[Rfam]
Shown here is a 123-nucleotide sequence from Papaver nudicaule, a member of the family "MIR408 microRNA precursor family". A reference for the family is Sunkar and Zhu (2004), "Novel and stress-regulated microRNAs and other small RNAs from Arabidopsis", Plant Cell. The source organism's lineage runs through Eukaryota, Viridiplantae, Streptophytina, Spermatophyta and Papaver. The base pairs follow the family's consensus structure, which was predicted with WAR. The family has 8 seed sequences and 299 matches in Rfam 15.1. Gene Ontology terms of the family: RISC complex and miRNA-mediated post-transcriptional gene silencing.
RNA sequence: AAAAGAUUUAUGGAUGGAGACAGGGAUGAGGUUGAGCAUGAGACGGACCACUCAGCAUAUGAAGUUUGUUGGUUGCUCUUCCCAUGCACUGCCUCUUCCCUGGCUCCUCUCUCUAAUUCUAUU
Numbered sequence: 001a002a003a004a005g006a007u008u009u010a011u012g013g014a015u016g017g018a019g020a021c022a023g024g025g026a027u028g029a030g031g032u033u034g035a036g037c038a039u040g041a042g043a044c045g046g047a048c049c050a051c052u053c054a055g056c057a058u059a060u061g062a063a064g065u066u067u068g069u070u071g072g073u074u075g076c077u078c079u080u081c082c083c084a085u086g087c088a089c090u091g092c093c094u095c096u097u098c099c100c101u102g103g104c105u106c107c108u109c110u111c112u113c114u115a116a117u118u119c120u121a122u123u
Stems, first nucleotide, its partner, number of pairs: 017106003021102006029094004034089001036087005042082001046078002